About this RNA
A member of the RNA family "mir-998 microRNA precursor family" from Pseudolycoriella hygida, 89 nucleotides long. The match comes from Rfam's covariance-model search (60 bits). The organism belongs to Pseudolycoriella, within Eukaryota. The family has 7 seed sequences and 83 matches in Rfam 15.1.
[Rfam]
RNA sequence: AUCAUUUAUACCACAACUGAACUCUGAUGGUCUUGCAUUGAAUAUUUUAAUUGUGUAGCACCAUGAGAUUCAGCUGUGGCAUAAAUUGU
Numbered sequence: 001a002u003c004a005u006u007u008a009u010a011c012c013a014c015a016a017c018u019g020a021a022c023u024c025u026g027a028u029g030g031u032c033u034u035g036c037a038u039u040g041a042a043u044a045u046u047u048u049a050a051u052u053g054u055g056u057a058g059c060a061c062c063a064u065g066a067g068a069u070u071c072a073g074c075u076g077u078g079g080c081a082u083a084a085a086u087u088g089u
Base pairs, nucleotide, nucleotide: 004086005085006084007083009081011079012078013077014076015075017073018072019071023068024067025066027064028063029062030061033058034057035056036055037054